[Rfam]
RNA sequence: GAGAUAUGAUGAGUUGUUUAGUCUCGCAUUAAAUAUGCGAGUUGGGUGUCUGCCCCAAGCUUGGAUAUGACAAUUGGGCACUCUCCUUUGACCAAUCUGAUAUC
Numbered sequence: 001g002a003g004a005u006a007u008g009a010u011g012a013g014u015u016g017u018u019u020a021g022u023c024u025c026g027c028a029u030u031a032a033a034u035a036u037g038c039g040a041g042u043u044g045g046g047u048g049u050c051u052g053c054c055c056c057a058a059g060c061u062u063g064g065a066u067a068u069g070a071c072a073a074u075u076g077g078g079c080a081c082u083c084u085c086c087u088u089u090g091a092c093c094a095a096u097c098u099g100a101u102a103u104c
Stems, first nucleotide, its partner, number of pairs: 001104002004101001014095003018091001023041005044083007062076003